[Rfam]
RNA sequence: AUACUCUGGUUUCUCUUCAGAUCGUAUAAAUCUUUCGCCUUUUACUAAAGAUUUCCGUGGAAAUGAACAAGCAUGAGGGUUGUGGAAUUUUUUGAGGCUCCGCUUCGCAGAGGAAA
Numbered sequence: 001a002u003a004c005u006c007u008g009g010u011u012u013c014u015c016u017u018c019a020g021a022u023c024g025u026a027u028a029a030a031u032c033u034u035u036c037g038c039c040u041u042u043u044a045c046u047a048a049a050g051a052u053u054u055c056c057g058u059g060g061a062a063a064u065g066a067a068c069a070a071g072c073a074u075g076a077g078g079g080u081u082g083u084g085g086a087a088u089u090u091u092u093u094g095a096g097g098c099u100c101c102g103c104u105u106c107g108c109a110g111a112g113g114a115a116a
Base pairs, nucleotide, nucleotide: 004077005076006075009068010067011066012065014063016061017060018059019058028054029053030052031051032050033049034048035047099114100113101112
Record summary: A member of the RNA family "U5 spliceosomal RNA" from Trogon melanurus, 116 nucleotides long. The match comes from Rfam's covariance-model search (79 bits). The family's RNA type in Rfam is spliceosomal small nuclear RNA. U5 RNA is a component of both types of known spliceosome.